[Rfam]
RNA sequence: AGACUUGACUCGGGGUGUCCGUUGUUACGCAGCGGACUGAGAUUUAACCCGCAUAACCUGAUCUGGAUAAUGCCAGCGUAGGGAAGUCACGGCGUCCCUUC
Numbered sequence: 001a002g003a004c005u006u007g008a009c010u011c012g013g014g015g016u017g018u019c020c021g022u023u024g025u026u027a028c029g030c031a032g033c034g035g036a037c038u039g040a041g042a043u044u045u046a047a048c049c050c051g052c053a054u055a056a057c058c059u060g061a062u063c064u065g066g067a068u069a070a071u072g073c074c075a076g077c078g079u080a081g082g083g084a085a086g087u088c089a090c091g092g093c094g095u096c097c098c099u100u101c
Stems, first nucleotide, its partner, number of pairs: 006089005011051004017037008057082004063076004